[Rfam]
RNA sequence: UAAAUUUAUACGGUUUUUCUUCAUAUAUCCUCGAAAAUAGGUUCGAGAGUCUCUACCGGGUCACCGUAAUGACCUGACUAUGAAGGCAGAAAUUUCUGUC
Number, nucleotide and partner (000 for none) at each position: 001u000002a000003a000004a000005u000006u000007u000008a000009u000010a000011c000012g000013g000014u000015u000016u000017u000018u086019c085020u084021u083022c082023a081024u080025a079026u000027a000028u000029c000030c047031u046032c045033g044034a043035a042036a000037a000038u000039a000040g000041g000042u035043u034044c033045g032046a031047g030048a000049g000050u000051c000052u000053c000054u000055a000056c000057c076058g075059g074060g073061u072062c071063a070064c000065c000066g000067u000068a000069a000070u063071g062072a061073c060074c059075u058076g057077a000078c000079u025080a024081u023082g022083a021084a020085g019086g018087c000088a000089g000090a000091a000092a000093u000094u000095u000096c000097u000098g000099u000100c000
RNA: Purine riboswitch aptamer